[Rfam]
RNA sequence: CCCCUUGGCGAUGAUGAGCUAGUCGCCAACAUCCUGACGGGCCUCAACAUGGAGUACAAUCCUCUUGUGUCAAUAUUGCUUGCGUGGGUGCAGCCCGUCUCCUUCAGCGAGCUUAAGGCUAAACUUCUGAUCUUUAAGA
Numbered sequence: 001c002c003c004c005u006u007g008g009c010g011a012u013g014a015u016g017a018g019c020u021a022g023u024c025g026c027c028a029a030c031a032u033c034c035u036g037a038c039g040g041g042c043c044u045c046a047a048c049a050u051g052g053a054g055u056a057c058a059a060u061c062c063u064c065u066u067g068u069g070u071c072a073a074u075a076u077u078g079c080u081u082g083c084g085u086g087g088g089u090g091c092a093g094c095c096c097g098u099c100u101c102c103u104u105c106a107g108c109g110a111g112c113u114u115a116a117g118g119c120u121a122a123a124c125u126u127c128u129g130a131u132c133u134u135u136a137a138g139a
Base pairs, nucleotide, nucleotide: 004138005137006136007135008134088108089107092104093103
The record is a 139-nucleotide RNA sequence from Setaria italica, which matches "Small nucleolar RNA Z247" in Rfam. By type it is a C/D-box small nucleolar RNA. Rfam links the family to the GO terms nucleolus and RNA processing.